The family of this 72-nucleotide RNA from Bombyx mori is "mir-932 microRNA precursor family".
RNA sequence: UGAGGCUUCAAUUCCGUAGUGCAUUGCAGUGCAUGCUGCCACCUGCAAGCAGUGCGGGAGUGAGGCUGAGGC
Numbered sequence: 001u002g003a004g005g006c007u008u009c010a011a012u013u014c015c016g017u018a019g020u021g022c023a024u025u026g027c028a029g030u031g032c033a034u035g036c037u038g039c040c041a042c043c044u045g046c047a048a049g050c051a052g053u054g055c056g057g058g059a060g061u062g063a064g065g066c067u068g069a070g071g072c
Stems, first nucleotide, its partner, number of pairs: 006065005013058005020051003024048005
Rfam links the family to the GO terms miRNA-mediated post-transcriptional gene silencing and RISC complex. Pairs were carried over by alignment from the consensus structure, which was predicted with RNAalifold.